[Rfam]
Salmonella enterica sRNA STnc260: a 176-nucleotide RNA sequence from Citrobacter portucalensis. The organism belongs to Citrobacter freundii complex, within Bacteria. It is one of the family's seed sequences.
RNA sequence: UCAAUACACUCUGGCAUCGUUAAUUAUCCACCUCUUUCUGCUUGCCAGAUCACAUUUUAUUAUUUAACAGGUCAGGCAUCAUUUAAAUUAAAAUAUAUUCUCGCCGCAAAUAUAAUAAACCCACAUUAUAUUAAGCAAUAAAAAACCCCGGACAUAAACCGGGGUUAAUUUAAAUA
Numbered sequence: 001u002c003a004a005u006a007c008a009c010u011c012u013g014g015c016a017u018c019g020u021u022a023a024u025u026a027u028c029c030a031c032c033u034c035u036u037u038c039u040g041c042u043u044g045c046c047a048g049a050u051c052a053c054a055u056u057u058u059a060u061u062a063u064u065u066a067a068c069a070g071g072u073c074a075g076g077c078a079u080c081a082u083u084u085a086a087a088u089u090a091a092a093a094u095a096u097a098u099u100c101u102c103g104c105c106g107c108a109a110a111u112a113u114a115a116u117a118a119a120c121c122c123a124c125a126u127u128a129u130a131u132u133a134a135g136c137a138a139u140a141a142a143a144a145a146c147c148c149c150g151g152a153c154a155u156a157a158a159c160c161g162g163g164g165u166u167a168a169u170u171u172a173a174a175u176a
Stems, first nucleotide, its partner, number of pairs: 010076006019068002022065002037049004083173004106136002109132008144166008